[Rfam]
Rfam assigns this 58-nucleotide sequence from Acyrthosiphon pisum to the family "mir-3036 microRNA precursor family". Its family is annotated with miRNA-mediated post-transcriptional gene silencing and RISC complex in the Gene Ontology.

RNA sequence: GCUUGUUUCUAGAUCUCAGCAUUUAAAUUGAUUGUUGCUGAGAUUUAGAAAUUAAUAU
Numbered sequence: 001g002c003u004u005g006u007u008u009c010u011a012g013a014u015c016u017c018a019g020c021a022u023u024u025a026a027a028u029u030g031a032u033u034g035u036u037g038c039u040g041a042g043a044u045u046u047a048g049a050a051a052u053u054a055a056u057a058u
Base pairs, nucleotide, nucleotide: 001056003054006051007050008049009048010047011046012045013044014043015042016041017040018039019038020037021036
It scores 73 bits against the family's covariance model.